[Rfam]
RNA sequence: AGCAAAAUGAUGAGAAUAUAUAAGCUGAAUUAUAUGCUGAAAUUCAUAUAUUAGCCUUCAAAGUUCUCUGAUUGAAUUGCU
Dot-bracket structure: (((((.......................................................................)))))
This 81-nucleotide RNA from Anisodus acutangulus belongs to the Rfam family "Small nucleolar RNA R160". Gene Ontology terms of the family: nucleolus and RNA processing. Rfam 15.1 lists 799 matches to the family in 221 species. A reference for the family is Chen et al. (2003), "The high diversity of snoRNAs in plants: identification and comparative study of 120 snoRNA genes from Oryza sativa", Nucleic Acids Res. Rfam describes the family as follows. snoR160 is a C/D box small nucleolar RNA, which acts as a methylation guide for 25S ribosomal RNA in plants. snoR160 has been alternatively named snoZ270 in rice. It is annotated as a C/D-box small nucleolar RNA. NCBI's taxonomy places the organism under Eukaryota, Streptophytina, Embryophyta, Solanales, Anisodus.